RNA: Alphaproteobacteria transfer-messenger RNA
RNA sequence: CUGCUUGACAGACCAUGAUAGCUGAACUAUUCUAUGGAUACUCCGGAAACGGAGUGAUGAGCGUAAUUCGGGAAACUGGAUUGCUGUCCGGACGCGGGGGCGGUGCCCGCCGCCUCCACCAAAACUACAGGACACCCAGACCUGGGGUUCGUUGAAGCAAUUCCCGAUGAGGCUAAUCGGGCACCAUUGUGGAGAGCAGUCCUGUGGUUUUGAUGGGGGCGAAAUAGGAUCGACGGCUGCGAAGAAAGAGACACGCGCUCCGGUGAGGCACACCGUUAUCGUCCAAAAACUGUAAUUGUCGCAGCAAAUGACAACCACUUUGAGGCCCGCGCCCUCGCGGCGUAGUCUCAUGGGGCCUCACCGGCCUCGCAACAGAAUGGUGAAGA
Numbered sequence: 001c002u003g004c005u006u007g008a009c010a011g012a013c014c015a016u017g018a019u020a021g022c023u024g025a026a027c028u029a030u031u032c033u034a035u036g037g038a039u040a041c042u043c044c045g046g047a048a049a050c051g052g053a054g055u056g057a058u059g060a061g062c063g064u065a066a067u068u069c070g071g072g073a074a075a076c077u078g079g080a081u082u083g084c085u086g087u088c089c090g091g092a093c094g095c096g097g098g099g100g101c102g103g104u105g106c107c108c109g110c111c112g113c114c115u116c117c118a119c120c121a122a123a124a125c126u127a128c129a130g131g132a133c134a135c136c137c138a139g140a141c142c143u144g145g146g147g148u149u150c151g152u153u154g155a156a157g158c159a160a161u162u163c164c165c166g167a168u169g170a171g172g173c174u175a176a177u178c179g180g181g182c183a184c185c186a187u188u189g190u191g192g193a194g195a196g197c198a199g200u201c202c203u204g205u206g207g208u209u210u211u212g213a214u215g216g217g218g219g220c221g222a223a224a225u226a227g228g229a230u231c232g233a234c235g236g237c238u239g240c241g242a243a244g245a246a247a248g249a250g251a252c253a254c255g256c257g258c259u260c261c262g263g264u265g266a267g268g269c270a271c272a273c274c275g276u277u278a279u280c281g282u283c284c285a286a287a288a289a290c291u292g293u294a295a296u297u298g299u300c301g302c303a304g305c306a307a308a309u310g311a312c313a314a315c316c317a318c319u320u321u322g323a324g325g326c327c328c329g330c331g332c333c334c335u336c337g338c339g340g341c342g343u344a345g346u347c348u349c350a351u352g353g354g355g356c357c358u359c360a361c362c363g364g365c366c367u368c369g370c371a372a373c374a375g376a377a378u379g380g381u382g383a384a385g386a
Stems, first nucleotide, its partner, number of pairs: 040055005059260005072252001076248002084239001086237001088236003094110005111221007261275004268284001270282002353367004358383006